[Rfam]
RNA sequence: UGGUCACAUAAUGUUUGUAUCACCCAUCUGAAGCAGAAAUGUGAUAUUCUGAUGGCUA
Numbered sequence: 001u002g003g004u005c006a007c008a009u010a011a012u013g014u015u016u017g018u019a020u021c022a023c024c025c026a027u028c029u030g031a032a033g034c035a036g037a038a039a040u041g042u043g044a045u046a047u048u049c050u051g052a053u054g055g056c057u058a
Stems, first nucleotide, its partner, number of pairs: 001058006
Overview: This 58-nucleotide RNA sequence from Oryza punctata belongs to the Rfam family "Small nucleolar RNA Z185". For this family Rfam cites "The high diversity of snoRNAs in plants: identification and comparative study of 120 snoRNA genes from Oryza sativa" (Chen et al., Nucleic Acids Res, 2003). The family's consensus secondary structure was predicted with PFOLD.